[Rfam]
RNA sequence: UUGGCAGAUUUGGAAAUUUCAGCUUGCAAACUUAGCGGAUUUGGAGACUUUAGCUUGCAACUUGGUGAAUUUGGAGACUUCAGCU
Numbered sequence: 001u002u003g004g005c006a007g008a009u010u011u012g013g014a015a016a017u018u019u020c021a022g023c024u025u026g027c028a029a030a031c032u033u034a035g036c037g038g039a040u041u042u043g044g045a046g047a048c049u050u051u052a053g054c055u056u057g058c059a060a061c062u063u064g065g066u067g068a069a070u071u072u073g074g075a076g077a078c079u080u081c082a083g084c085u
Stems, first nucleotide, its partner, number of pairs: 001083004009075006017067001019065003025059004032053004037048001